Description:
The record is a 130-nucleotide RNA sequence from Gossypium australe, which matches "Small nucleolar RNA snoR74" in Rfam. The family has 9 seed sequences and 1,404 matches in Rfam 15.1. The family's consensus secondary structure was predicted with WAR. It is annotated as an H/ACA-box small nucleolar RNA.
RNA sequence: GAAAAAGCAGGGUCUUGUUGCCUUUUUUGAGUGUGGCUCUCGUAAACUUCAGGAAAAUUACUUGCAUUGUUAUUGGGUGAACCUCUGGAUCUUCUUGGUGACUGAAGGUUCAGUAAAUGAUGCUUCAUUU
Numbered sequence: 001g002a003a004a005a006a007g008c009a010g011g012g013u014c015u016u017g018u019u020g021c022c023u024u025u026u027u028u029g030a031g032u033g034u035g036g037c038u039c040u041c042g043u044a045a046a047c048u049u050c051a052g053g054a055a056a057a058u059u060a061c062u063u064g065c066a067u068u069g070u071u072a073u074u075g076g077g078u079g080a081a082c083c084u085c086u087g088g089a090u091c092u093u094c095u096u097g098g099u100g101a102c103u104g105a106a107g108g109u110u111c112a113g114u115a116a117a118u119g120a121u122g123c124u125u126c127a128u129u130u
Base pairs, nucleotide, nucleotide: 005049006048007047011038012037014035016033017032065122066121067120068119069118070117071116078112079111080110081109082108083107084106

The match comes from Rfam's covariance-model search (104 bits). Its family is annotated with nucleolus and RNA processing in the Gene Ontology. Lineage of the source: Eukaryota > Viridiplantae > Euphyllophyta > Mesangiospermae > Gossypium.